The record is a 360-nucleotide part of an RNA from Natranaeroarchaeum sulfidigenes, which matches "Archaeal large subunit ribosomal RNA" in Rfam. Gene Ontology terms of the family: ribosome and structural constituent of ribosome. The base pairs follow the family's consensus structure, which is taken from published work.
RNA sequence: CAUAGUAGCAGCGAUAGUCGGGUUAGACCCCCGACGGCCUAAUGGAUAAGGGUUCCUCGGCAAUGCUGAUCAGCCGAGGGUUAGCCGGUCCUAAGAUCUCUCGUAACUCGCGGAGAUCGAAGCAGGGUAACGGAUUAAUAUUUCCGUGCCACCAUACACUCAAAGGAGACGUUUCGGGGUCGCCCAGGCUGGGCUCGCGCCCAGUGUAACCGUCUAACUCCGUGGAAGCCGUAAUGGCACGAAGCGGACGAACGGCGGGAUGCCGCAAGCUGGGUCAACCUGGAACCCGUGAAAAUCCGAGUAUGGUGUCCGUACCGAGAACCGACACAGGUAUCCAUGGCGGCGAAAGCCAAGGCCUGU
Numbered sequence: 001c002a003u004a005g006u007a008g009c010a011g012c013g014a015u016a017g018u019c020g021g022g023u024u025a026g027a028c029c030c031c032c033g034a035c036g037g038c039c040u041a042a043u044g045g046a047u048a049a050g051g052g053u054u055c056c057u058c059g060g061c062a063a064u065g066c067u068g069a070u071c072a073g074c075c076g077a078g079g080g081u082u083a084g085c086c087g088g089u090c091c092u093a094a095g096a097u098c099u100c101u102c103g104u105a106a107c108u109c110g111c112g113g114a115g116a117u118c119g120a121a122g123c124a125g126g127g128u129a130a131c132g133g134a135u136u137a138a139u140a141u142u143u144c145c146g147u148g149c150c151a152c153c154a155u156a157c158a159c160u161c162a163a164a165g166g167a168g169a170c171g172u173u174u175c176g177g178g179g180u181c182g183c184c185c186a187g188g189c190u191g192g193g194c195u196c197g198c199g200c201c202c203a204g205u206g207u208a209a210c211c212g213u214c215u216a217a218c219u220c221c222g223u224g225g226a227a228g229c230c231g232u233a234a235u236g237g238c239a240c241g242a243a244g245c246g247g248a249c250g251a252a253c254g255g256c257g258g259g260a261u262g263c264c265g266c267a268a269g270c271u272g273g274g275u276c277a278a279c280c281u282g283g284a285a286c287c288c289g290u291g292a293a294a295a296u297c298c299g300a301g302u303a304u305g306g307u308g309u310c311c312g313u314a315c316c317g318a319g320a321a322c323c324g325a326c327a328c329a330g331g332u333a334u335c336c337a338u339g340g341c342g343g344c345g346a347a348a349g350c351c352a353a354g355g356c357c358u359g360u
Base pairs, nucleotide, nucleotide: 017035018034019033020032021031022030036357037356038355039354044336045335046334047333050316051315055079056078057077058076059075060074064072065071086312087311088310090126091125095118096117097116098115099114100113102110103109130147131146132145133144134143150308151307152306153305154304155303156302157301165298166297167296171286172285173284174283175282176281177280178279182275183274184273185272186271188205189204190203191202192201210258211257212256213255219248220247221246222245223244228238229237230236264269322331323330338352339351340350341349